Source information:
A member of the RNA family "Bacterial large subunit ribosomal RNA" from Paralcaligenes ureilyticus, 445 nucleotides of a longer RNA. Taxonomically the source falls in Paralcaligenes (Bacteria, Pseudomonadota, Betaproteobacteria, Alcaligenaceae). The base pairs follow the family's consensus structure, which is taken from published work. Its family is annotated with ribosome and structural constituent of ribosome in the Gene Ontology.
[Rfam]
RNA sequence: CUCUCCGAAAACUAUUUAGGUAGUGCCUCGCGUGAUUACUGCAGGGGGUAGAGCACUGUUAUAGCUAGGGGGCCAUGAUGGCUUACCAACCUAUGGCAAACUCCGAAUACCUGCAAGUACAGCGCGGGAGACAGAGCACCGGGUGCUAACGUCCGGACUCAAGAGGGAAACAACCCAGACCGCCAGCUAAGGUCCCUAACUAUGGCUAAGUGGGAAACGAAGUGGGAAGGCAUAGACAGUCAGGAAGUUGGCUUAGAAGCAGCCAUCUUUUAAAGAAAGCGUAAUAGCUCACUGAUCGAGUCGUCCUGCGCGGAAGAUGUAACGGGGCUAAGCCAUAGACCGAAGCUGCGGAUGUGUGUUCUUCGGAACAUACGUGGUAGGAGAGCGUUCUGUAAGCCUGCGAAGGUGUCUUGUAAAGGAUGCUGGAGGUAUCAGAAGUGCGAAU
Numbered sequence: 001c002u003c004u005c006c007g008a009a010a011a012c013u014a015u016u017u018a019g020g021u022a023g024u025g026c027c028u029c030g031c032g033u034g035a036u037u038a039c040u041g042c043a044g045g046g047g048g049u050a051g052a053g054c055a056c057u058g059u060u061a062u063a064g065c066u067a068g069g070g071g072g073c074c075a076u077g078a079u080g081g082c083u084u085a086c087c088a089a090c091c092u093a094u095g096g097c098a099a100a101c102u103c104c105g106a107a108u109a110c111c112u113g114c115a116a117g118u119a120c121a122g123c124g125c126g127g128g129a130g131a132c133a134g135a136g137c138a139c140c141g142g143g144u145g146c147u148a149a150c151g152u153c154c155g156g157a158c159u160c161a162a163g164a165g166g167g168a169a170a171c172a173a174c175c176c177a178g179a180c181c182g183c184c185a186g187c188u189a190a191g192g193u194c195c196c197u198a199a200c201u202a203u204g205g206c207u208a209a210g211u212g213g214g215a216a217a218c219g220a221a222g223u224g225g226g227a228a229g230g231c232a233u234a235g236a237c238a239g240u241c242a243g244g245a246a247g248u249u250g251g252c253u254u255a256g257a258a259g260c261a262g263c264c265a266u267c268u269u270u271u272a273a274a275g276a277a278a279g280c281g282u283a284a285u286a287g288c289u290c291a292c293u294g295a296u297c298g299a300g301u302c303g304u305c306c307u308g309c310g311c312g313g314a315a316g317a318u319g320u321a322a323c324g325g326g327g328c329u330a331a332g333c334c335a336u337a338g339a340c341c342g343a344a345g346c347u348g349c350g351g352a353u354g355u356g357u358g359u360u361c362u363u364c365g366g367a368a369c370a371u372a373c374g375u376g377g378u379a380g381g382a383g384a385g386c387g388u389u390c391u392g393u394a395a396g397c398c399u400g401c402g403a404a405g406g407u408g409u410c411u412u413g414u415a416a417a418g419g420a421u422g423c424u425g426g427a428g429g430u431a432u433c434a435g436a437a438g439u440g441c442g443a444a445u
Stems, first nucleotide, its partner, number of pairs: 001385006011024005026130001027128007036121001040115006051104001052102002057098003061094004068087002070084005134160003139156006165176003180351004185347003191341003200338007218312002222309006229302003239296005245269003250264003270274001275290001279288002352375008386440001388437005396430003405424008